[Rfam]
RNA sequence: AGUAUUUGAGGUAGAAAUUGUGCUACUAUACACCUUUAUAAAAGGUUUAAGAGAUGUGGGGAAGGGCACUCCCACCAAAUACU
Numbered sequence: 001a002g003u004a005u006u007u008g009a010g011g012u013a014g015a016a017a018u019u020g021u022g023c024u025a026c027u028a029u030a031c032a033c034c035u036u037u038a039u040a041a042a043a044g045g046u047u048u049a050a051g052a053g054a055u056g057u058g059g060g061g062a063a064g065g066g067c068a069c070u071c072c073c074a075c076c077a078a079a080u081a082c083u
Stems, first nucleotide, its partner, number of pairs: 001083008011029004020069005031051001032046004056075005

The record is an 83-nucleotide RNA, which matches "skipping-rope RNA" in Rfam.